[Rfam]
RNA sequence: CGCUUUUUUCGCCCAGGCGGAGCUCGACCGCAAGCUGAAGUCGUAAACACCUACAUUGAUCAGCAUCGGGAUACCUACGGGGUCGAGCCGAUCUGCAAAGUAUUGCAGAUUGCCCCG
Numbered sequence: 001c002g003c004u005u006u007u008u009u010c011g012c013c014c015a016g017g018c019g020g021a022g023c024u025c026g027a028c029c030g031c032a033a034g035c036u037g038a039a040g041u042c043g044u045a046a047a048c049a050c051c052u053a054c055a056u057u058g059a060u061c062a063g064c065a066u067c068g069g070g071a072u073a074c075c076u077a078c079g080g081g082g083u084c085g086a087g088c089c090g091a092u093c094u095g096c097a098a099a100g101u102a103u104u105g106c107a108g109a110u111u112g113c114c115c116c117g
Stems, first nucleotide, its partner, number of pairs: 017031004078117005089112002092109007
This 117-nucleotide sequence from Pistricoccus aurantiacus belongs to the Rfam family "ALIL pseudoknot". The family's consensus secondary structure is taken from published work. The family's RNA type in Rfam is cis-regulatory element. Rfam links the family to the GO term positive regulation of translational frameshifting. On this family, see Mazauric et al., J Biol Chem 2008: "Apical loop-internal loop RNA pseudoknots: a new type of stimulator of -1 translational frameshifting in bacteria".